[Rfam]
The family of this 72-nucleotide sequence from Allocatelliglobosispora scoriae is "6C RNA".
The base pairs follow the family's consensus structure, which is taken from published work.
RNA sequence: CGGGUUUCGGCUCAACCCCCCCGGAGCCGGACCCCUAGGACGACCCCCGUCUAUCGACGGGGGUCGUCGCCA
Numbered sequence: 001c002g003g004g005u006u007u008c009g010g011c012u013c014a015a016c017c018c019c020c021c022c023g024g025a026g027c028c029g030g031a032c033c034c035c036u037a038g039g040a041c042g043a044c045c046c047c048c049g050u051c052u053a054u055c056g057a058c059g060g061g062g063g064u065c066g067u068c069g070c071c072a
Stems, first nucleotide, its partner, number of pairs: 002035003006031008039068013
Dot-bracket structure: .(((.((((((((..........)))))))).)))...(((((((((((((....)))))))))))))....
It is annotated as a cis-regulatory element. The match comes from Rfam's covariance-model search (55 bits).